[Rfam]
Rfam assigns this 102-nucleotide sequence from Centaurea solstitialis to the family "MIR162_1 microRNA precursor family".
On this family, see Reinhart et al., Genes Dev 2002: "MicroRNAs in plants".
The family is grouped with related families in Rfam's "MIR167 microRNA precursor clan".

RNA sequence: GUAGAGGUCGCUGGAUGCAGCGGUUCAUCGAUCUGUUCCCCAAAUCUGAUCGAAUAGGAUAAAGGAAUCGAUCGAUAAACCUCUGCAUCCAGUGCUCAGCCA
Numbered sequence: 001g002u003a004g005a006g007g008u009c010g011c012u013g014g015a016u017g018c019a020g021c022g023g024u025u026c027a028u029c030g031a032u033c034u035g036u037u038c039c040c041c042a043a044a045u046c047u048g049a050u051c052g053a054a055u056a057g058g059a060u061a062a063a064g065g066a067a068u069c070g071a072u073c074g075a076u077a078a079a080c081c082u083c084u085g086c087a088u089c090c091a092g093u094g095c096u097c098a099g100c101c102a
Stems, first nucleotide, its partner, number of pairs: 013090003018085003022081004027076007036067003